LOOT RNA: a 113-nucleotide RNA.

RNA sequence: AGCCUAACCCGACUCGUCGGCACGGUUGUCUAAAUCCAUGUAAAGAAACAGCUCGUCAUAGGGUAUUUCUUUACAUGGUCAUAUCGGGAAACUGAUAUGGGGGCUUCGGCUCC
Number, nucleotide and partner (000 for none) at each position: 001a027002g026003c025004c024005u000006a000007a000008c000009c020010c019011g018012a017013c000014u000015c000016g000017u012018c011019g010020g009021c000022a000023c000024g004025g003026u002027u001028g000029u000030c000031u000032a000033a000034a000035u000036c078037c077038a076039u075040g074041u073042a072043a071044a070045g069046a068047a000048a000049c000050a064051g000052c062053u061054c000055g000056u000057c000058a000059u000060a000061g053062g052063g000064u050065a000066u000067u000068u046069c045070u044071u043072u042073a041074c040075a039076u038077g037078g036079u000080c099081a098082u097083a096084u095085c094086g093087g092088g000089a000090a000091a000092c087093u086094g085095a084096u083097a082098u081099g080100g113101g112102g111103g110104c109105u000106u000107c000108g000109g104110c103111u102112c101113c100
It is one of the family's seed sequences.